A member of the RNA family "Streptococcus RNA 266" from Streptococcus hillyeri, 110 nucleotides long. It is annotated as a small RNA. The organism belongs to Streptococcus, within Bacteria. It scores 92 bits against the family's covariance model.
RNA sequence: AAUGAAUUGUUUGGUCGCUUUUCAUUAUAUGUCUUAUUGGACUUUUUAGGUGCUCAAAAAGGCCUAUAAUCUCCAUAGUGGAAUUUACCCACUACAGAAAUUAUAGAGCC
Numbered sequence: 001a002a003u004g005a006a007u008u009g010u011u012u013g014g015u016c017g018c019u020u021u022u023c024a025u026u027a028u029a030u031g032u033c034u035u036a037u038u039g040g041a042c043u044u045u046u047u048a049g050g051u052g053c054u055c056a057a058a059a060a061g062g063c064c065u066a067u068a069a070u071c072u073c074c075a076u077a078g079u080g081g082a083a084u085u086u087a088c089c090c091a092c093u094a095c096a097g098a099a100a101u102u103a104u105a106g107a108g109c110c
Base pairs, nucleotide, nucleotide: 001026002025003024004023005022006021009018010017029044031042032041033040061110062109063108064106066104067103068102069101070100072098073097076094077093078092079091080090081089